This 176-nucleotide sequence belongs to the Rfam family "Group II catalytic intron D1-D4-5".
RNA sequence: UCCGUCGGUAUAUUCGACGAAAUGAGUUUGUCGGUAAAUUCCGACGGAUAUAUGUCCGUCGGUAUAUUCGACGAAAUGAGUUUGUCGGUAAAUUCGACGGAUAUAUGUCCGUCGGUAUAUUCGACGAAAUGAGUUUGUCGGUAAAUUCCGACGGAUAUAUGUCGUCGGUAUAUUCG
Numbered sequence: 001u002c003c004g005u006c007g008g009u010a011u012a013u014u015c016g017a018c019g020a021a022a023u024g025a026g027u028u029u030g031u032c033g034g035u036a037a038a039u040u041c042c043g044a045c046g047g048a049u050a051u052a053u054g055u056c057c058g059u060c061g062g063u064a065u066a067u068u069c070g071a072c073g074a075a076a077u078g079a080g081u082u083u084g085u086c087g088g089u090a091a092a093u094u095c096g097a098c099g100g101a102u103a104u105a106u107g108u109c110c111g112u113c114g115g116u117a118u119a120u121u122c123g124a125c126g127a128a129a130u131g132a133g134u135u136u137g138u139c140g141g142u143a144a145a146u147u148c149c150g151a152c153g154g155a156u157a158u159a160u161g162u163c164g165u166c167g168g169u170a171u172a173u174u175c176g
Stems, first nucleotide, its partner, number of pairs: 031168004041088009051078003055074001057073003095164005104155001106153004110126003114122002131148007

The match comes from Rfam's covariance-model search (35 bits). Its family is annotated with Group II intron splicing in the Gene Ontology. A reference for the family is Chu et al. (2001), "Control of branch-site choice by a group II intron", EMBO J. Rfam describes the family as follows. Group II introns are found in rRNA, tRNA and mRNA of organelles in fungi, plants and protists, and also in mRNA in bacteria. The base pairs follow the family's consensus structure.